[Rfam]
RNA sequence: CUCUGUUUGGAUCAAGAUGUUUUGGACAGAGCGACGCACAUCAGCCACCGACCAAGGGAAGUCCGAUAGGUGGCAGGUAAAGGCACUAAUUCUAACUAGGCGUAAAGCCCGAUAACUCCGCCCCUUGUAGCUGCUAGAGGGGACAAGCGGAAAAGGAAUAACGAAUUAGUGUUGUGUGACUCGGACGGGGGGCGAAAGCCUUUACACACAGCGCAGGG
Numbered sequence: 001c002u003c004u005g006u007u008u009g010g011a012u013c014a015a016g017a018u019g020u021u022u023u024g025g026a027c028a029g030a031g032c033g034a035c036g037c038a039c040a041u042c043a044g045c046c047a048c049c050g051a052c053c054a055a056g057g058g059a060a061g062u063c064c065g066a067u068a069g070g071u072g073g074c075a076g077g078u079a080a081a082g083g084c085a086c087u088a089a090u091u092c093u094a095a096c097u098a099g100g101c102g103u104a105a106a107g108c109c110c111g112a113u114a115a116c117u118c119c120g121c122c123c124c125u126u127g128u129a130g131c132u133g134c135u136a137g138a139g140g141g142g143a144c145a146a147g148c149g150g151a152a153a154a155g156g157a158a159u160a161a162c163g164a165a166u167u168a169g170u171g172u173u174g175u176g177u178g179a180c181u182c183g184g185a186c187g188g189g190g191g192g193c194g195a196a197a198g199c200c201u202u203u204a205c206a207c208a209c210a211g212c213g214c215a216g217g218g
Base pairs, nucleotide, nucleotide: 001031002030003029004028005027006026007025044074045073046072047071048070049069061186062185063184064183065182084171085170086169087168088167089166090165091164092163118150119149120148122142123141124140125139126138172211173210174209175208176207177206189202190201191200192199193198
A member of the RNA family "PAGEV RNA" from Vibrio cholerae, 218 nucleotides long. The organism belongs to Vibrio cholerae, within Bacteria. The sequence is in the family's curated seed alignment.